[Rfam]
The family of this 151-nucleotide RNA sequence from Meyerozyma guilliermondii is "U4 spliceosomal RNA". U4 small nuclear RNA (U4 snRNA) is a component of the major U2-dependent spliceosome. Clan: U4 clan.
RNA sequence: AUCUUUAUGCAGGGAUAUUACGUGUAUCAGUGAGGAUUCGUCCGAGAUCAUGUUUUUGCUAGUUGAAAACUACAACCUGACAGCUCCUUGAUGUGGUAUCCUUGUGGUAUCUGCGUCCAGGGAAUUUUUGGAACUUUUUUUUUUCAUUGAA
Numbered sequence: 001a002u003c004u005u006u007a008u009g010c011a012g013g014g015a016u017a018u019u020a021c022g023u024g025u026a027u028c029a030g031u032g033a034g035g036a037u038u039c040g041u042c043c044g045a046g047a048u049c050a051u052g053u054u055u056u057u058g059c060u061a062g063u064u065g066a067a068a069a070c071u072a073c074a075a076c077c078u079g080a081c082a083g084c085u086c087c088u089u090g091a092u093g094u095g096g097u098a099u100c101c102u103u104g105u106g107g108u109a110u111c112u113g114c115g116u117c118c119a120g121g122g123a124a125u126u127u128u129u130g131g132a133a134c135u136u137u138u139u140u141u142u143u144u145c146a147u148u149g150a151a
Stems, first nucleotide, its partner, number of pairs: 020053005026048003034043003085122003090117007097109004137151002